[Rfam]
Nucleotides: 116
Stems, first nucleotide, its partner, number of pairs: 002115006009108005015102011027090018049068003
Number, partner (000 for none) and nucleotide at each position: 001000a002115u003114a004113u005112a006111a007110g008000c009108a010107a011106a012105a013104a014000u015102u016101u017100g018099a019098u020097u021096u022095u023094u024093a025092g026000a027090u028089u029088c030087a031086u032085u033084c034083a035082u036081u037080a038079a039078a040077u041076g042075a043074c044073g045000u046000a047000u048000g049068u050067a051066g052000a053000c054000u055000u056000u057000u058000a059000u060000u061000a062000u063000a064000g065000a066051c067050u068049a069000c070000a071000u072000a073044c074043g075042u076041c077040a078039u079038u080037u081036a082035a083034u084033g085032a086031a087030u088029g089028a090027a091000u092025c093024u094023a095022a096021a097020a098019a099018u100017c101016a102015a103000a104013u105012u106011u107010u108009u109000g110007c111006u112005u113004a114003u115002a116000u

The record is a 116-nucleotide sequence from Medicago truncatula, which matches "MIR2593 microRNA precursor family" in Rfam. Rfam links the family to the GO terms miRNA-mediated post-transcriptional gene silencing and RISC complex.